The family of this 122-nucleotide sequence from Shinella sp. WSJ-2 is "Rhizobiales sRNA Atu_C8".
A search with the family's covariance model found it, with a score of 113 bits.
Lineage of the source: Bacteria > Pseudomonadati > Pseudomonadota > Alphaproteobacteria > Shinella.
On this family, see Wilms et al., RNA Biol 2012: "Deep sequencing uncovers numerous small RNAs on all four replicons of the plant pathogen Agrobacterium tumefaciens".
By type it is a small RNA.

RNA sequence: AAAUCUGAUGGUUGUUAUUCUUGUGGUGGGAACGCGCAUGGGCAGGGUGGUGUAACCACCCGGCGAAAGCACCCAUGCGCGGUAAGCAGGCUCCUCCAAGGGGCCUUUUUUUAUGCCCGAAA
Numbered sequence: 001a002a003a004u005c006u007g008a009u010g011g012u013u014g015u016u017a018u019u020c021u022u023g024u025g026g027u028g029g030g031a032a033c034g035c036g037c038a039u040g041g042g043c044a045g046g047g048u049g050g051u052g053u054a055a056c057c058a059c060c061c062g063g064c065g066a067a068a069g070c071a072c073c074c075a076u077g078c079g080c081g082g083u084a085a086g087c088a089g090g091c092u093c094c095u096c097c098a099a100g101g102g103g104c105c106u107u108u109u110u111u112u113a114u115g116c117c118c119g120a121a122a
Stems, first nucleotide, its partner, number of pairs: 009026001029118002033081010045061006063070002086107001088106007